raiA RNA: a 220-nucleotide RNA sequence from Peptacetobacter hominis. The family's consensus secondary structure is taken from published work.
[Rfam]
RNA sequence: GAUGUUCAGGUCUGUGGUUGCAAGUCCAGGCCAGUCGCAGGCAAAGGGAUCCACGUAAGCUAUCUCCAAAAGCGGAGAAGUGAUCAUGGUGCGGCCUAGAAGUAAGACCUACCGAUAUUCAAAAAAUAAAUUCAAAUCGAGAGAGAGUAGUAGUGAGGCAAACCCGAGCGAACCCUCCAGUAGGCGAGUGUGGGGGCAAAGACCAGGUCAGCUGAACAUC
Numbered sequence: 001g002a003u004g005u006u007c008a009g010g011u012c013u014g015u016g017g018u019u020g021c022a023a024g025u026c027c028a029g030g031c032c033a034g035u036c037g038c039a040g041g042c043a044a045a046g047g048g049a050u051c052c053a054c055g056u057a058a059g060c061u062a063u064c065u066c067c068a069a070a071a072g073c074g075g076a077g078a079a080g081u082g083a084u085c086a087u088g089g090u091g092c093g094g095c096c097u098a099g100a101a102g103u104a105a106g107a108c109c110u111a112c113c114g115a116u117a118u119u120c121a122a123a124a125a126a127u128a129a130a131u132u133c134a135a136a137u138c139g140a141g142a143g144a145g146a147g148u149a150g151u152a153g154u155g156a157g158g159c160a161a162a163c164c165c166g167a168g169c170g171a172a173c174c175c176u177c178c179a180g181u182a183g184g185c186g187a188g189u190g191u192g193g194g195g196g197c198a199a200a201g202a203c204c205a206g207g208u209c210a211g212c213u214g215a216a217c218a219u220c
Stems, first nucleotide, its partner, number of pairs: 001220009012211003015205005028191001030189001031041001034095006050089002055084001058081001061078001063076002087198001108184005113139004143177003147174001153169002